Rfam assigns this 79-nucleotide RNA sequence to the family "RAGATH-18 RNA". Rfam classes the family as a small RNA.
RNA sequence: UCUGUGAAUCGUCAUAAAAUGAAAGUAGUUAGUAAUGCAAAGUGAUAUUGCAACAAAAUCAGACGGGAUGAAGCAGAAA
Numbered sequence: 001u002c003u004g005u006g007a008a009u010c011g012u013c014a015u016a017a018a019a020u021g022a023a024a025g026u027a028g029u030u031a032g033u034a035a036u037g038c039a040a041a042g043u044g045a046u047a048u049u050g051c052a053a054c055a056a057a058a059u060c061a062g063a064c065g066g067g068a069u070g071a072a073g074c075a076g077a078a079a
Base pairs, nucleotide, nucleotide: 001077002076003075004074005073009066010065011064012063013062020061021060022059028054029053030052032051033050034049035048036047037046
Dot-bracket structure: (((((...(((((......(((.....(((.((((((........)))))))))....))))))))......)))))..
From the family's description: Actinobacteria, Firmicutes, Fusobacteria, Thermotogae (1 example).